[Rfam]
RNA sequence: CAAGUAGACCGGGUGGCCGCCCGCCUUUAAAGCGGGAGGAAAGUCCGAGCUCCUCCAGACAGGAUGCUGGGUAACACCCAGGGGGGGCGACCCUACGGAAAGUGCAACAGAAACAUACCGCCUGUGAAAAUAGGUAAGGGCGAAAUGGUGAGGUAAGAGCUCACCGGCAGUCCGGGUGACCGGCUGGCCGGGUAAACCCCGUCCGGAGCAAGGCCAAAUAGGGGAACGCAAGGACGUCUGGCCUGUUCCCGGGUUGGCCGCAUGAACCAGACGGUAACGUCUGGUCUAGAUAGAUGGUCAUCACCUUUGCCUUCGGGCAAGGGUACAGAACUCGGCUUACAGGUCUGCUUGGCUU
Numbered sequence: 001c002a003a004g005u006a007g008a009c010c011g012g013g014u015g016g017c018c019g020c021c022c023g024c025c026u027u028u029a030a031a032g033c034g035g036g037a038g039g040a041a042a043g044u045c046c047g048a049g050c051u052c053c054u055c056c057a058g059a060c061a062g063g064a065u066g067c068u069g070g071g072u073a074a075c076a077c078c079c080a081g082g083g084g085g086g087g088c089g090a091c092c093c094u095a096c097g098g099a100a101a102g103u104g105c106a107a108c109a110g111a112a113a114c115a116u117a118c119c120g121c122c123u124g125u126g127a128a129a130a131u132a133g134g135u136a137a138g139g140g141c142g143a144a145a146u147g148g149u150g151a152g153g154u155a156a157g158a159g160c161u162c163a164c165c166g167g168c169a170g171u172c173c174g175g176g177u178g179a180c181c182g183g184c185u186g187g188c189c190g191g192g193u194a195a196a197c198c199c200c201g202u203c204c205g206g207a208g209c210a211a212g213g214c215c216a217a218a219u220a221g222g223g224g225a226a227c228g229c230a231a232g233g234a235c236g237u238c239u240g241g242c243c244u245g246u247u248c249c250c251g252g253g254u255u256g257g258c259c260g261c262a263u264g265a266a267c268c269a270g271a272c273g274g275u276a277a278c279g280u281c282u283g284g285u286c287u288a289g290a291u292a293g294a295u296g297g298u299c300a301u302c303a304c305c306u307u308u309g310c311c312u313u314c315g316g317g318c319a320a321g322g323g324u325a326c327a328g329a330a331c332u333c334g335g336c337u338u339a340c341a342g343g344u345c346u347g348c349u350u351g352g353c354u355u
Stems, first nucleotide, its partner, number of pairs: 001351010011340001012302007020036005026030001041338003045335005050208004058239001062204005067081005082096001083094004097199002102197002104193002118139002120135006147165006167188001168186003172183004212259004222250006231244003235241001266285008
A member of the RNA family "Bacterial RNase P class A" from Dehalococcoides mccartyi, 355 nucleotides long. For this family Rfam cites "Ribonuclease P: unity and diversity in a tRNA processing ribozyme" (Frank and Pace, Annu Rev Biochem, 1998). The source organism's lineage runs through Bacteria, Chloroflexota, Dehalococcoidia, Dehalococcoidales and Dehalococcoides mccartyi. The family's RNA type in Rfam is ribozyme.